This 68-nucleotide RNA from Mangrovibacillus cuniculi belongs to the Rfam family "Bacillaceae-1 RNA". Lineage of the source: Bacteria > Bacillota > Bacilli > Caryophanales > Mangrovibacillus. The family's consensus secondary structure is taken from published work. It is annotated as a small RNA. Rfam 15.1 lists 5,721 matches to the family in 247 species.

RNA sequence: AGGUAAGGAUACUCGGUUAAGUACAGACCACAUCACGUGGUCAACGCCGAGUUGUUGCAUCACGCAAA
Numbered sequence: 001a002g003g004u005a006a007g008g009a010u011a012c013u014c015g016g017u018u019a020a021g022u023a024c025a026g027a028c029c030a031c032a033u034c035a036c037g038u039g040g041u042c043a044a045c046g047c048c049g050a051g052u053u054g055u056u057g058c059a060u061c062a063c064g065c066a067a068a
Stems, first nucleotide, its partner, number of pairs: 011052007027041005055067004